This 134-nucleotide RNA from Coffea arabica belongs to the Rfam family "Small nucleolar RNA snoR74". Gene Ontology terms of the family: nucleolus and RNA processing. A reference for the family is Marker et al. (2002), "Experimental RNomics: identification of 140 candidates for small non-messenger RNAs in the plant Arabidopsis thaliana", Curr Biol. The base pairs follow the family's consensus structure, which was predicted with WAR. The match comes from Rfam's covariance-model search (84 bits).

RNA sequence: AAAAAAGCAGGGGCCUUUUGCCGUUUAAUGUGAACGGGUCUCUCGUAAACUUCAGGGGGAACAAAACUUGGCGUUGUUAGUGGGUGAACCUCCUGAACUUCAUGAUCCACGGUUCAGUAAACGAUGAUACAUUU
Numbered sequence: 001a002a003a004a005a006a007g008c009a010g011g012g013g014c015c016u017u018u019u020g021c022c023g024u025u026u027a028a029u030g031u032g033a034a035c036g037g038g039u040c041u042c043u044c045g046u047a048a049a050c051u052u053c054a055g056g057g058g059g060a061a062c063a064a065a066a067c068u069u070g071g072c073g074u075u076g077u078u079a080g081u082g083g084g085u086g087a088a089c090c091u092c093c094u095g096a097a098c099u100u101c102a103u104g105a106u107c108c109a110c111g112g113u114u115c116a117g118u119a120a121a122c123g124a125u126g127a128u129a130c131a132u133u134u
Stems, first nucleotide, its partner, number of pairs: 005052003011041002014038003070128001072126007085116006
Dot-bracket structure: ....(((...((.(((...................))).))........))).................(.(((((((......((((((....................))))))...))))))).)......